The family of this 84-nucleotide RNA sequence from Camelus dromedarius is "mir-500 microRNA precursor family".
RNA sequence: GCUAGCCCUCUCUAAUCCUUGCUCUCUAGGUGCUAGUGCUGUCUUGAUGCAAUGCACCUGGGCAAGGAUUCAGAGAAGGUGGGC
Numbered sequence: 001g002c003u004a005g006c007c008c009u010c011u012c013u014a015a016u017c018c019u020u021g022c023u024c025u026c027u028a029g030g031u032g033c034u035a036g037u038g039c040u041g042u043c044u045u046g047a048u049g050c051a052a053u054g055c056a057c058c059u060g061g062g063c064a065a066g067g068a069u070u071c072a073g074a075g076a077a078g079g080u081g082g083g084c
Stems, first nucleotide, its partner, number of pairs: 014070007025062008037051003
Annotation:
For this family Rfam cites "Small RNA expression and strain specificity in the rat" (Linsen et al., BMC Genomics, 2010). NCBI's taxonomy places the organism under Eukaryota, Dipnotetrapodomorpha, Tetrapoda, Laurasiatheria, Camelus. Rfam 15.1 lists 402 matches to the family in 133 species. The family's consensus secondary structure was predicted with RNAalifold. It scores 96 bits against the family's covariance model.